[Rfam]
Nucleotides: 080
Stems, first nucleotide, its partner, number of pairs: 011070005016064005027056004031051002
Number, partner (000 for none) and nucleotide at each position: 001000c002000g003000a004000g005000g006000u007000g008000c009000c010000a011070g012069a013068g014067c015066u016064u017063a018062g019061c020060u021000g022000a023000u024000u025000u026000g027056g028055u029054g030053a031051c032050a033000g034000u035000g036000a037000u038000u039000g040000u041000u042000u043000u044000c045000c046000u047000c048000u049000u050032u051031g052000u053030u054029c055028a056027c057000a058000g059000u060020g061019g062018c063017u064016a065000a066015a067014g068013u069012u070011c071000u072000g073000c074000c075000a076000a077000c078000c079000u080000g